[Rfam]
Rfam assigns this 208-nucleotide RNA sequence from Oryza rufipogon to the family "MIR812 microRNA precursor family".
The base pairs follow the family's consensus structure, which was predicted with RNAalifold.
RNA sequence: UUUAAGUGUAGUCUGUGGGUUUCUAUAUCAAAUGUUUGCCCGUCCGCUUUAUUUGAAAAAAAUAUGAAAAGAAAUAAAAAAAUAAGUCACGCAUGAAGUGAUAUUCGUGUUUUAUUAUCUAAUAACAAUAACAAUACUAAUUAUAAAAAAAUUUCAAAUAAGAUGAACGAUCAAAUGUUGGAUAUAGAAACCGAUAACUGCACUUAAA
Numbered sequence: 001u002u003u004a005a006g007u008g009u010a011g012u013c014u015g016u017g018g019g020u021u022u023c024u025a026u027a028u029c030a031a032a033u034g035u036u037u038g039c040c041c042g043u044c045c046g047c048u049u050u051a052u053u054u055g056a057a058a059a060a061a062a063u064a065u066g067a068a069a070a071g072a073a074a075u076a077a078a079a080a081a082a083u084a085a086g087u088c089a090c091g092c093a094u095g096a097a098g099u100g101a102u103a104u105u106c107g108u109g110u111u112u113u114a115u116u117a118u119c120u121a122a123u124a125a126c127a128a129u130a131a132c133a134a135u136a137c138u139a140a141u142u143a144u145a146a147a148a149a150a151a152u153u154u155c156a157a158a159u160a161a162g163a164u165g166a167a168c169g170a171u172c173a174a175a176u177g178u179u180g181g182a183u184a185u186a187g188a189a190a191c192c193g194a195u196a197a198c199u200g201c202a203c204u205u206a207a208a
Base pairs, nucleotide, nucleotide: 028182029181031179032178033177035175036174037173038172041169042168043167045165046164048162049161050160051159052158